[Rfam]
RNA sequence: UUCACAUCAGUUCUUUAUAAAAGCUAAAACUAAGUUUUGAUUAGUUGAUGCUUAUGUUAGUGAAGCGUAAAUCAUAUGUUCCCCUCGCUAUCCAGAGCUGCGUUUUGUGUUGUAUUUGGACGUCGGGGAACUACAUUC
Numbered sequence: 001u002u003c004a005c006a007u008c009a010g011u012u013c014u015u016u017a018u019a020a021a022a023g024c025u026a027a028a029a030c031u032a033a034g035u036u037u038u039g040a041u042u043a044g045u046u047g048a049u050g051c052u053u054a055u056g057u058u059a060g061u062g063a064a065g066c067g068u069a070a071a072u073c074a075u076a077u078g079u080u081c082c083c084c085u086c087g088c089u090a091u092c093c094a095g096a097g098c099u100g101c102g103u104u105u106u107g108u109g110u111u112g113u114a115u116u117u118g119g120a121c122g123u124c125g126g127g128g129a130a131c132u133a134c135a136u137u138c
Base pairs, nucleotide, nucleotide: 001070002069003067005065008062009061016059017058020055027053028052030050034049035048036047078131079130080129081128082127083126084125086122087121091120092119093118094117095116100110101109102108
A member of the RNA family "Small nucleolar RNA snoR136" from Salix dunnii, 138 nucleotides long. A search with the family's covariance model found it, with a score of 72 bits. The literature on the family includes a 2009 paper in Nucleic Acids Res by Chen and Wu, "Mining small RNA sequencing data: a new approach to identify small nucleolar RNAs in Arabidopsis". Lineage of the source: Eukaryota > Streptophyta > eudicotyledons > Pentapetalae > Salix.